[Rfam]
RNA: Microsporidia small subunit ribosomal RNA, nucleotides 1 to 505
RNA sequence: CACCAGGUUGAUUCUCGCCUGACUGUGGAUGCUAGUCCCAUAGAUUUAGCCAUGCAUGUGUAAGUGAAGCGAUAAGUGGAACGCGCGGACGGCUCAGUAACUGGGCAUUAGUAUUUAAUCUCUUUAUAUGGACAACCUCAGGAAACAGAGGGGAAAACAUAUUAGAUUCAUUUUAUAUAAGAAGAAUGAAUUGAGAACAAAUGAAAAUUUUUAUUUGUGAAAGAGAGUAAGAAGCCAUCCUAUCAGUUAGUAAGUAGGGUAAGGGCCUACUUAGACAAGGACGGGUACGGGGGAUUAGGGUUUGAUUCCGGAGAGGGAGCCUGAGAGAUGGCUACCAGGUCCAAGGACAGCAGCAGGCGCGAAAAUUACCACAGUCCACAUUGGAGCGGUAGUGAAGGGACGUAAAAACAAAGAUGUGUAGAUAACAUCUGUGUAACUGGAGGUCAAGUCUGGUGCCCAGCAUCCGCGGUAAUACCAGCUCCAGGAGUGUCUAUGAUGAUUGCUG
Numbered sequence: 001c002a003c004c005a006g007g008u009u010g011a012u013u014c015u016c017g018c019c020u021g022a023c024u025g026u027g028g029a030u031g032c033u034a035g036u037c038c039c040a041u042a043g044a045u046u047u048a049g050c051c052a053u054g055c056a057u058g059u060g061u062a063a064g065u066g067a068a069g070c071g072a073u074a075a076g077u078g079g080a081a082c083g084c085g086c087g088g089a090c091g092g093c094u095c096a097g098u099a100a101c102u103g104g105g106c107a108u109u110a111g112u113a114u115u116u117a118a119u120c121u122c123u124u125u126a127u128a129u130g131g132a133c134a135a136c137c138u139c140a141g142g143a144a145a146c147a148g149a150g151g152g153g154a155a156a157a158c159a160u161a162u163u164a165g166a167u168u169c170a171u172u173u174u175a176u177a178u179a180a181g182a183a184g185a186a187u188g189a190a191u192u193g194a195g196a197a198c199a200a201a202u203g204a205a206a207a208u209u210u211u212u213a214u215u216u217g218u219g220a221a222a223g224a225g226a227g228u229a230a231g232a233a234g235c236c237a238u239c240c241u242a243u244c245a246g247u248u249a250g251u252a253a254g255u256a257g258g259g260u261a262a263g264g265g266c267c268u269a270c271u272u273a274g275a276c277a278a279g280g281a282c283g284g285g286u287a288c289g290g291g292g293g294a295u296u297a298g299g300g301u302u303u304g305a306u307u308c309c310g311g312a313g314a315g316g317g318a319g320c321c322u323g324a325g326a327g328a329u330g331g332c333u334a335c336c337a338g339g340u341c342c343a344a345g346g347a348c349a350g351c352a353g354c355a356g357g358c359g360c361g362a363a364a365a366u367u368a369c370c371a372c373a374g375u376c377c378a379c380a381u382u383g384g385a386g387c388g389g390u391a392g393u394g395a396a397g398g399g400a401c402g403u404a405a406a407a408a409c410a411a412a413g414a415u416g417u418g419u420a421g422a423u424a425a426c427a428u429c430u431g432u433g434u435a436a437c438u439g440g441a442g443g444u445c446a447a448g449u450c451u452g453g454u455g456c457c458c459a460g461c462a463u464c465c466g467c468g469g470u471a472a473u474a475c476c477a478g479c480u481c482c483a484g485g486a487g488u489g490u491c492u493a494u495g496a497u498g499a500u501u502g503c504u505g
Base pairs, nucleotide, nucleotide: 004021005020006019007018008017023495025494026493027492028491029490030489031488032487033486035401036400037399038398039397041394042393043360049358050357051356053355054354055353058086059085064082065081069077070076093313094312095311104236105235106234108232109231114230115229119226120225121224122223123222124221125220128160129159130158136151137150138149139148141146239285240284241283246276247275248274251273252272253271254270255269256268257267258266288310289309290308291307292303293302294301295300315336316335318333319332320331339348340347341346366391368390369389370388375385376384377383378382412430413429414428415427416426437484438483439482440481441480442479450478451477452476453475460467461466